[Rfam]
RNA: Small nucleolar RNA snoR60
Organism: Chenopodium quinoa
RNA sequence: AUGCAUAUGACGAGUUUAUCGGAUUCCCCUUCAAGACUUACUGGGUGAUGUAAACUCCGAUUAUCUGAUGCA
Number, nucleotide and partner (000 for none) at each position: 001a000002u072003g071004c070005a069006u000007a000008u000009g000010a000011c000012g000013a000014g000015u000016u000017u000018a000019u000020c000021g000022g000023a000024u000025u000026c000027c000028c000029c000030u000031u000032c000033a000034a000035g000036a000037c000038u000039u000040a000041c000042u000043g000044g000045g000046u000047g000048a000049u000050g000051u000052a000053a000054a000055c000056u000057c000058c000059g000060a000061u000062u000063a000064u000065c000066u000067g000068a000069u005070g004071c003072a002